Record summary:
The record is a 303-nucleotide RNA sequence from Carnegiea gigantea, which matches "Plant signal recognition particle RNA" in Rfam. The match comes from Rfam's covariance-model search (155 bits). Taxonomically the source falls in Carnegiea (Eukaryota, Streptophytina, Tracheophyta, Cactoideae).
[Rfam]
RNA sequence: CGCACUGUGUAGCGCCAGCUUGUAAUUCGAGCGAGGGGAUCAAAGUAAUGGAUUAAAACCCAGCUUUACUCGGUAGGGCUCCCAGAAGCGAGUCUCUGGCCCCCCCAAUUUAAGCCAAGAGUUGGGUUGUGUGGCUUGGGCGAAGGCCUAGGUCCAACGGCCCUUAGCGAGGAGGACAUUCCGUCAGGCUGGUUUCACAGAACAGCGAACGCCUACCGCUCUUGGCAGUGGGAGGAUAACGGGCCGCUGCUCUGUGGGCUCAUUAAUUCUCAGUGGGCUGAGCCCAUCUGUACCACUACCAUU
Number, nucleotide and partner (000 for none) at each position: 001c036002g021003c000004a000005c018006u017007g016008u000009g000010u000011a000012g000013c000014g000015c000016c007017a006018g005019c000020u000021u002022g000023u000024a000025a000026u035027u034028c033029g000030a000031g000032c000033g028034a027035g026036g001037g000038g000039a000040u000041c000042a302043a000044a000045g299046u298047a297048a000049u295050g294051g293052a000053u000054u290055a289056a287057a000058a000059c282060c000061c280062a279063g278064c277065u000066u276067u275068a274069c273070u272071c000072g270073g269074u000075a267076g261077g260078g259079c258080u257081c256082c000083c254084a253085g000086a000087a251088g250089c000090g000091a248092g000093u000094c000095u000096c000097u246098g245099g244100c243101c242102c241103c000104c000105c235106c234107a000108a000109u232110u231111u230112a229113a000114g226115c225116c224117a223118a222119g221120a220121g219122u218123u000124g163125g162126g161127u160128u159129g158130u157131g000132u000133g154134g153135c152136u151137u150138g149139g148140g147141c146142g000143a000144a000145g000146g141147c140148c139149u138150a137151g136152g135153u134154c133155c000156a000157a130158c129159g128160g127161c126162c125163c124164u169165u000166a000167g000168c000169g164170a000171g216172g000173a214174g213175g212176a000177c000178a000179u000180u209181c000182c207183g206184u205185c000186a000187g000188g000189c200190u199191g198192g000193u000194u000195u000196c000197a000198c191199a190200g189201a000202a000203c000204a000205g184206c183207g182208a000209a180210c000211g000212c175213c174214u173215a000216c171217c000218g122219c121220u120221c119222u118223u117224g116225g115226c114227a000228g000229u112230g111231g110232g109233a000234g106235g105236a000237u000238a000239a000240c000241g102242g101243g100244c099245c098246g097247c000248u091249g000250c088251u087252c000253u084254g083255u000256g081257g080258g079259c078260u077261c076262a000263u000264u000265a000266a000267u075268u000269c073270u072271c000272a070273g069274u068275g067276g066277g064278c063279u062280g061281a000282g059283c000284c000285c000286a000287u056288c000289u055290g054291u000292a000293c051294c050295a049296c000297u047298a046299c045300c000301a000302u042303u000